Shown here is a 51-nucleotide RNA from Vagococcus zengguangii, a member of the family "Na+ riboswitch aptamer (DUF1646)". NCBI's taxonomy places the organism under Bacteria, Bacillati, Bacilli, Lactobacillales, Vagococcus. The base pairs follow the family's consensus structure, which is taken from published work. The match comes from Rfam's covariance-model search (49 bits). A reference for the family is White et al. (2022), "Na(+) riboswitches regulate genes for diverse physiological processes in bacteria", Nat Chem Biol.
RNA sequence: GGUUGGGCAUAAUAUGCUUCAAGGGUUUAUUUCUUCAAGGGGUGAGAAGAA
Number, nucleotide and partner (000 for none) at each position: 001g000002g000003u022004u021005g020006g018007g017008c016009a015010u000011a000012a000013u000014a000015u009016g008017c007018u006019u000020c005021a004022a003023g000024g000025g000026u000027u000028u000029a000030u000031u051032u050033c049034u048035u047036c046037a000038a000039g000040g000041g000042g000043u000044g000045a000046g036047a035048a034049g033050a032051a031